Rfam assigns this 65-nucleotide sequence from Kluyvera cryocrescens to the family "rdlD antitoxin".
Rfam links the family to the GO terms negative regulation of translation and mRNA binding.
A reference for the family is Kawano et al. (2002), "Molecular characterization of long direct repeat (LDR) sequences expressing a stable mRNA encoding for a 35-amino-acid cell-killing peptide and a cis-encoded small antisense RNA in Escherichia coli", Mol Microbiol.
The family's RNA type in Rfam is antitoxin RNA.
The base pairs follow the family's consensus structure.
NCBI's taxonomy places the organism under Bacteria, Gammaproteobacteria, Enterobacterales, Enterobacteriaceae, Kluyvera.

[Rfam]
RNA sequence: GUCUAGGUUCAAGUUAGCCCCCGUUUUGUUGCCAGGUUUUACCGAACAACGUGCGGGGGUUUUCU
Numbered sequence: 001g002u003c004u005a006g007g008u009u010c011a012a013g014u015u016a017g018c019c020c021c022c023g024u025u026u027u028g029u030u031g032c033c034a035g036g037u038u039u040u041a042c043c044g045a046a047c048a049a050c051g052u053g054c055g056g057g058g059g060u061u062u063u064c065u
Stems, first nucleotide, its partner, number of pairs: 016061009027051005035043002